Acido-Lenti-1 RNA: a 46-nucleotide RNA sequence from Parabacteroides sp. AF48-14.
RNA sequence: CCCGGGGUUUACACCCCGGGCUAUGAUCUGCCGCCCUUACAGGGCU
Numbered sequence: 001c002c003c004g005g006g007g008u009u010u011a012c013a014c015c016c017c018g019g020g021c022u023a024u025g026a027u028c029u030g031c032c033g034c035c036c037u038u039a040c041a042g043g044g045c046u
Stems, first nucleotide, its partner, number of pairs: 001020008033045005